The record is a 92-nucleotide sequence from Cuscuta campestris, which matches "Small nucleolar RNA Z157/R69/R10" in Rfam. The literature on the family includes a 2003 paper in Nucleic Acids Res by Chen et al., "The high diversity of snoRNAs in plants: identification and comparative study of 120 snoRNA genes from Oryza sativa". Lineage of the source: Eukaryota > Streptophytina > Mesangiospermae > Pentapetalae > Cuscuta sect. Cleistogrammica. The family's consensus secondary structure was predicted with PFOLD. The family's RNA type in Rfam is C/D-box small nucleolar RNA.
RNA sequence: UGAUCUGCGGUGAUGAAGAAAUGGUUUAGACUAGAGUUUCUGAUCUUCGCUUCGAAGGUUGAAGACAAAACCCUUGGCUGCCUGAGCAAGCA
Number, nucleotide and partner (000 for none) at each position: 001u092002g091003a000004u089005c000006u088007g087008c086009g000010g000011u000012g000013a000014u000015g000016a000017a000018g000019a000020a000021a000022u000023g000024g000025u000026u000027u000028a000029g000030a000031c000032u000033a000034g000035a000036g000037u064038u063039u062040c061041u000042g000043a000044u000045c057046u056047u055048c054049g053050c000051u000052u000053c049054g048055a047056a046057g045058g000059u000060u000061g040062a039063a038064g037065a000066c000067a000068a000069a000070a000071c000072c000073c000074u000075u000076g000077g000078c000079u000080g000081c000082c000083u000084g000085a000086g008087c007088a006089a004090g000091c002092a001